[Rfam]
RNA: Bacterial RNase P class B
RNA sequence: CAAAGUGUGUAAUCGCGCCGGUGCUUUGGACACUGGUGAGGAAAGUCCACACUCGCCCAGGCUGUGAUGCCUGGAGUUUGGAUGCCUGACGAAUUCAUAAGUCAGGGCAGUCUGGUUUCGACUGGGCUGACGGCGGUGAAAGGAGCUACGUCCCGUUGGGGAUAUGCUCCGAAUAACCUGAAAGUGCCACAGUGACGAAGUCUUCCUGGAAACGGGAAGAGUGGAACGAGGUAAACCCCAUCUGCGAGAAACCCAAAUUACGGUAGGGGAACUGCCCGGAAGGAAACAGAACGGAAGGGCGGAUCGCUGGCAACAGCGAUAGAUAGAUGGUUACAGCUCGAGUGCGAGGCUGGCCGCCGACUUGUAGCACGAGAGUACAGAAUGUGGCUUAUAGCU
Numbered sequence: 001c002a003a004a005g006u007g008u009g010u011a012a013u014c015g016c017g018c019c020g021g022u023g024c025u026u027u028g029g030a031c032a033c034u035g036g037u038g039a040g041g042a043a044a045g046u047c048c049a050c051a052c053u054c055g056c057c058c059a060g061g062c063u064g065u066g067a068u069g070c071c072u073g074g075a076g077u078u079u080g081g082a083u084g085c086c087u088g089a090c091g092a093a094u095u096c097a098u099a100a101g102u103c104a105g106g107g108c109a110g111u112c113u114g115g116u117u118u119c120g121a122c123u124g125g126g127c128u129g130a131c132g133g134c135g136g137u138g139a140a141a142g143g144a145g146c147u148a149c150g151u152c153c154c155g156u157u158g159g160g161g162a163u164a165u166g167c168u169c170c171g172a173a174u175a176a177c178c179u180g181a182a183a184g185u186g187c188c189a190c191a192g193u194g195a196c197g198a199a200g201u202c203u204u205c206c207u208g209g210a211a212a213c214g215g216g217a218a219g220a221g222u223g224g225a226a227c228g229a230g231g232u233a234a235a236c237c238c239c240a241u242c243u244g245c246g247a248g249a250a251a252c253c254c255a256a257a258u259u260a261c262g263g264u265a266g267g268g269g270a271a272c273u274g275c276c277c278g279g280a281a282g283g284a285a286a287c288a289g290a291a292c293g294g295a296a297g298g299g300c301g302g303a304u305c306g307c308u309g310g311c312a313a314c315a316g317c318g319a320u321a322g323a324u325a326g327a328u329g330g331u332u333a334c335a336g337c338u339c340g341a342g343u344g345c346g347a348g349g350c351u352g353g354c355c356g357c358c359g360a361c362u363u364g365u366a367g368c369a370c371g372a373g374a375g376u377a378c379a380g381a382a383u384g385u386g387g388c389u390u391a392u393a394g395c396u
Base pairs, nucleotide, nucleotide: 004396005395006394007392008335009334010333011332012331013330014329016038017037018036019035020034021033043390044389045388047387048386049385050384051383052248053247054246055245056244057074058073059072060071061070062069080243081242082241083240084239085106086105087104088103089102090101107131108129109128110127111126112125113124114123115122116121132238133237135178136177137176143169144168145167146166150163151162152161153160154159184236185235186232187231188230201220202219203218204217205216206215207214208213252268253267254266272302273301274300275299276298277297303320304319305318306317307316308315337375338374339373342370343369344368345367